[Rfam]
RNA sequence: UUGGUUUAAAUCAUUAUGGAUCUACACUUUGGAAAUAGAACCAACACAAAGUGGUCGGACAUGUAUUGAUUUCAUCCAA
Number, nucleotide and partner (000 for none) at each position: 001u079002u078003g077004g076005u000006u074007u000008a072009a071010a070011u069012c068013a067014u000015u065016a064017u063018g062019g000020a000021u000022c057023u000024a055025c053026a052027c051028u050029u049030u048031g047032g000033a000034a000035a000036u000037a000038g000039a000040a000041c000042c000043a000044a000045c000046a000047c031048a030049a029050a028051g027052u026053g025054g000055u024056c000057g022058g000059a000060c000061a000062u018063g017064u016065a015066u000067u013068g012069a011070u010071u009072u008073c000074a006075u000076c004077c003078a002079a001
RNA: MIR5269 microRNA precursor family
Organism: Medicago truncatula